[Rfam]
RNA sequence: ACGUAGUUUCAAGGUCGGGUGAGAUUCCCUACCGGCGGUAACUGGGGUGAGGCGCGCCGCGCCCUCUCGGAAGCCCGCGACCCACGCAGGUGGCUGAUCCGGUGCAAGUCCGGAGCCGACGGUACAGUCCGGAUGAGAGAAACGGAGA
Numbered sequence: 001a002c003g004u005a006g007u008u009u010c011a012a013g014g015u016c017g018g019g020u021g022a023g024a025u026u027c028c029c030u031a032c033c034g035g036c037g038g039u040a041a042c043u044g045g046g047g048u049g050a051g052g053c054g055c056g057c058c059g060c061g062c063c064c065u066c067u068c069g070g071a072a073g074c075c076c077g078c079g080a081c082c083c084a085c086g087c088a089g090g091u092g093g094c095u096g097a098u099c100c101g102g103u104g105c106a107a108g109u110c111c112g113g114a115g116c117c118g119a120c121g122g123u124a125c126a127g128u129c130c131g132g133a134u135g136a137g138a139g140a141a142a143c144g145g146a147g148a
Stems, first nucleotide, its partner, number of pairs: 004145001006143005017029003031128002033118002035078004073116002082093002098114005120131003
RNA: FMN riboswitch aptamer (RFN element)